Annotation: A member of the RNA family "transfer-messenger RNA" from Dyadobacter psychrotolerans, 372 nucleotides long. NCBI's taxonomy places the organism under Bacteria, Bacteroidota, Cytophagia, Cytophagales, Dyadobacter. It is annotated as a non-coding RNA gene. The base pairs follow the family's consensus structure, which is taken from published work.
[Rfam]
RNA sequence: GGGGGUGACUGGUAUUGACAGCGGGCUGGAAGUCUGUGUGUAAGCAUGUCGGGAGUUGAGAGUACCUCCCGUAAAUAAUAUUCUCAAACAAUAACUGGCGAAUCUACUUACGCCAUGGCUGCUUAAUCCGGAGGAUUAACCAAAUGCCAUCAUCCCUCCAACCUACGUGCUGAUGGUUGGGCUCCGGGGUGUCGCAAAUCAGCGCUGGUUGAAAUAGUGGUACGGAAAUUCAACGAGACACCAGUAUCUAAGGUUUUGACGCGGGUUCGCCUUGUACCUUGUCAGGCUCGAAAACUUAAACGAGGAUAAGCAUGUAGAAGGCGCAGGGUUUCCCUGUUCUGGACCAGGGUUCGAAUCCCUGCAUCUCCACGA
Number, nucleotide and partner (000 for none) at each position: 001g368002g367003g366004g365005g364006u363007g362008a000009c000010u000011g000012g000013u000014a000015u000016u000017g000018a000019c341020a340021g339022c000023g337024g000025g335026c000027u000028g332029g000030a000031a000032g330033u000034c328035u327036g000037u325038g324039u323040g322041u321042a000043a000044g000045c314046a313047u312048g311049u310050c071051g070052g069053g068054a067055g000056u000057u000058g085059a084060g083061a082062g081063u080064a079065c000066c000067u054068c053069c052070c051071g050072u000073a000074a000075a000076u000077a000078a000079u064080a063081u062082u061083c060084u059085c058086a000087a000088a000089c000090a000091a000092u000093a000094a000095c000096u000097g000098g000099c000100g000101a000102a000103u000104c000105u000106a000107c000108u000109u000110a000111c000112g000113c000114c000115a137116u000117g000118g000119c133120u132121g000122c130123u000124u000125a000126a000127u000128c000129c000130g122131g000132a120133g119134g000135a000136u000137u115138a000139a000140c000141c000142a000143a000144a000145u000146g000147c000148c000149a000150u000151c191152a190153u189154c188155c187156c186157u181158c180159c179160a178161a000162c000163c176164u175165a174166c000167g000168u000169g203170c202171u201172g200173a199174u165175g164176g163177u000178u160179g159180g158181g157182c000183u000184c000185c000186g156187g155188g154189g153190u152191g151192u000193c000194g000195c000196a000197a000198a000199u173200c172201a171202g170203c169204g000205c237206u236207g000208g234209u233210u232211g231212a230213a229214a000215u000216a000217g000218u000219g248220g247221u246222a245223c244224g000225g000226a000227a000228a000229u213230u212231c211232a210233a209234c208235g000236a206237g205238a000239c000240a000241c000242c000243a000244g223245u222246a221247u220248c219249u000250a000251a000252g289253g288254u000255u286256u285257u000258g282259a000260c000261g000262c000263g000264g278265g277266u276267u000268c000269g000270c000271c305272u304273u000274g301275u300276a266277c265278c264279u000280u000281g000282u258283c000284a000285g256286g255287c000288u253289c252290g000291a000292a000293a000294a000295c000296u000297u000298a000299a000300a275301c274302g000303a000304g272305g271306a000307u000308a000309a000310g049311c048312a047313u046314g045315u000316a000317g000318a000319a000320g000321g041322c040323g039324c038325a037326g000327g035328g034329u000330u032331u000332c028333c000334c000335u025336g000337u023338u000339c021340u020341g019342g000343a000344c000345c361346a360347g359348g358349g357350u000351u000352c000353g000354a000355a000356u000357c349358c348359c347360u346361g345362c007363a006364u005365c004366u003367c002368c001369a000370c000371g000372a000